[Rfam]
RNA: Molybdenum/Tungsten riboswitch aptamer (Moco RNA motif)
Organism: Syntrophomonas wolfei
RNA sequence: ACAAUUGUAUAGCUCCAAGCCUUUAGACCUAAAGCAAAGCCAUGGUUUCUAGGCCUGUGGGUAUAGUUGGAAACGAUUGUGCCUCCCCGUAUUUUUGGAAAGGAGCCUAAAAAGCCUGGUU
Numbered sequence: 001a002c003a004a005u006u007g008u009a010u011a012g013c014u015c016c017a018a019g020c021c022u023u024u025a026g027a028c029c030u031a032a033a034g035c036a037a038a039g040c041c042a043u044g045g046u047u048u049c050u051a052g053g054c055c056u057g058u059g060g061g062u063a064u065a066g067u068u069g070g071a072a073a074c075g076a077u078u079g080u081g082c083c084u085c086c087c088c089g090u091a092u093u094u095u096u097g098g099a100a101a102g103g104a105g106c107c108u109a110a111a112a113a114g115c116c117u118g119g120u121u
Base pairs, nucleotide, nucleotide: 006112012106013105014104015103016102019054020053021052022051025048026047027046028045029044034040035039059084060083061082062081063080064079065078066077067076068075069074085098086097